[Rfam]
RNA sequence: CUCCCCGAAAUGUAUUGAGGUACAGCCACCUGAAACGACUAUCCUGGAGGUAGAGCACUAGAUAGGCUAGGGGCCCUGUGCGGGUUACCAACCCUACUUAAACUCCGAAUGCCAGGACAGGAUCCAGGUGAGUGAGACGGCGGGGGCUAAGCUUCGUCGUCAAAAGGGAAACAGCCCAGACCAUCGGCUAAGGUCUCCAAAUCGAUGCUCAGUGUCAAAGGGGGUCAAUGCGCCCAAACAGCCAGGAUGUUGGCUUAGAAGCAGCCAUCAUUUAAAGAGUGCGUAAUAGCUCACUGGUCGAGUGCAAUGGCACCGACAACGUAUCGAGGCUUAAGCAUCGUACCGAAGCCGUGGAUCUCUACCUUGUGUAGAGAUGGUAGGGGAGCGUUCUCGACGCCUGAGAAGCCAGACCGUAAGGACUGGUGGAGGUAAGAGAAGUGAGAAU
Numbered sequence: 001c002u003c004c005c006c007g008a009a010a011u012g013u014a015u016u017g018a019g020g021u022a023c024a025g026c027c028a029c030c031u032g033a034a035a036c037g038a039c040u041a042u043c044c045u046g047g048a049g050g051u052a053g054a055g056c057a058c059u060a061g062a063u064a065g066g067c068u069a070g071g072g073g074c075c076c077u078g079u080g081c082g083g084g085u086u087a088c089c090a091a092c093c094c095u096a097c098u099u100a101a102a103c104u105c106c107g108a109a110u111g112c113c114a115g116g117a118c119a120g121g122a123u124c125c126a127g128g129u130g131a132g133u134g135a136g137a138c139g140g141c142g143g144g145g146g147c148u149a150a151g152c153u154u155c156g157u158c159g160u161c162a163a164a165a166g167g168g169a170a171a172c173a174g175c176c177c178a179g180a181c182c183a184u185c186g187g188c189u190a191a192g193g194u195c196u197c198c199a200a201a202u203c204g205a206u207g208c209u210c211a212g213u214g215u216c217a218a219a220g221g222g223g224g225u226c227a228a229u230g231c232g233c234c235c236a237a238a239c240a241g242c243c244a245g246g247a248u249g250u251u252g253g254c255u256u257a258g259a260a261g262c263a264g265c266c267a268u269c270a271u272u273u274a275a276a277g278a279g280u281g282c283g284u285a286a287u288a289g290c291u292c293a294c295u296g297g298u299c300g301a302g303u304g305c306a307a308u309g310g311c312a313c314c315g316a317c318a319a320c321g322u323a324u325c326g327a328g329g330c331u332u333a334a335g336c337a338u339c340g341u342a343c344c345g346a347a348g349c350c351g352u353g354g355a356u357c358u359c360u361a362c363c364u365u366g367u368g369u370a371g372a373g374a375u376g377g378u379a380g381g382g383g384a385g386c387g388u389u390c391u392c393g394a395c396g397c398c399u400g401a402g403a404a405g406c407c408a409g410a411c412c413g414u415a416a417g418g419a420c421u422g423g424u425g426g427a428g429g430u431a432a433g434a435g436a437a438g439u440g441a442g443a444a445u
Base pairs, nucleotide, nucleotide: 001385002384003383004382005381006380011024012023013022014021015020026132027130028129029128030127031126032125038123039120040119042117043116044115045114046113047112053106054104055103059100060099061098063096064095065094066093070089071088072086073085074084075083076082136161137160138159139158140157141156142155143154144153145152166177167176168175181354182353183352184351186350187349188348192344193343194342201341203340204339205338206337207336208335220314221313224311225310226309227308229306230305231304232303233302241298242297243296244295245294247271248270249269252266253265254264272276277292281290282289355375356374357373358372359371360370361369362368386440388437389436390435391434392433396430397429398428405424406423407422408421409420411418412417

Bacterial large subunit ribosomal RNA: a 445-nucleotide part of an RNA from Ktedonobacter racemifer.
The family's consensus secondary structure is taken from published work.
Lineage of the source: Bacteria > Bacillati > Chloroflexota > Ktedonobacteraceae > Ktedonobacter racemifer.
The sequence is in the family's curated seed alignment.